[Rfam]
RNA sequence: GGAGGAGAAGCGUUCCCCGGUGGGGCGGCUGGUCUUCAAAACCAGAAGGGGCUGCGGAUGCGGUCUCUGGUGGGUUCGACUCCCACUCUCUUCC
Number, nucleotide and partner (000 for none) at each position: 001g094002g093003a092004g091005g090006a089007g088008a087009a000010g000011c027012g026013u025014u000015c024016c023017c022018c000019g000020g000021u000022g017023g016024g015025g013026c012027g011028g000029c045030u044031g043032g042033u041034c000035u000036u000037c000038a000039a000040a000041a033042c032043c031044a030045g029046a000047a000048g067049g066050g065051g064052c063053u000054g000055c000056g000057g000058a000059u000060g000061c000062g000063g052064u051065c050066u049067c048068u000069g000070g000071u085072g084073g083074g082075u000076u000077c000078g000079a000080c000081u000082c074083c073084c072085a071086c000087u008088c007089u006090c005091u004092u003093c002094c001